This 77-nucleotide sequence from Alligator sinensis belongs to the Rfam family "Mammalian CPEB3 ribozyme".
Its family is annotated with RNA nuclease activity in the Gene Ontology.
The match comes from Rfam's covariance-model search (48 bits).
The family's consensus secondary structure is taken from published work.
[Rfam]
RNA sequence: UGUCGCAAGUUCGAGGCUAUAGCAGAAGUGCUCGUGGUGCAGCCCUGUCAGAUUCUAACAAAUCUGUGAGUUCUGCU
Numbered sequence: 001u002g003u004c005g006c007a008a009g010u011u012c013g014a015g016g017c018u019a020u021a022g023c024a025g026a027a028g029u030g031c032u033c034g035u036g037g038u039g040c041a042g043c044c045c046u047g048u049c050a051g052a053u054u055c056u057a058a059c060a061a062a063u064c065u066g067u068g069a070g071u072u073c074u075g076c077u
Stems, first nucleotide, its partner, number of pairs: 013045001015044004021077007028040003049066006
Dot-bracket structure: ............[.[[[[..((((((((((.......)))]]]]]...((((((......))))))....)))))))